[Rfam]
About this RNA:
The record is an 86-nucleotide sequence from Trifolium pratense, which matches "Small nucleolar RNA Z159/U59" in Rfam. The family's consensus secondary structure was predicted with PFOLD. The source organism's lineage runs through Eukaryota, Mesangiospermae, fabids, Trifolieae and Trifolium. The literature on the family includes a 2003 paper in Nucleic Acids Res by Chen et al., "The high diversity of snoRNAs in plants: identification and comparative study of 120 snoRNA genes from Oryza sativa".
RNA sequence: GUCUCUGAGGAUGAUCAAAACAUAAUAACUUUCGUUCUUCUGAGUUAUCUAUGCGGAAAAUAUUUGGAGACCUGAACUGAAGAGAC
Numbered sequence: 001g002u003c004u005c006u007g008a009g010g011a012u013g014a015u016c017a018a019a020a021c022a023u024a025a026u027a028a029c030u031u032u033c034g035u036u037c038u039u040c041u042g043a044g045u046u047a048u049c050u051a052u053g054c055g056g057a058a059a060a061u062a063u064u065u066g067g068a069g070a071c072c073u074g075a076a077c078u079g080a081a082g083a084g085a086c
Stems, first nucleotide, its partner, number of pairs: 003084004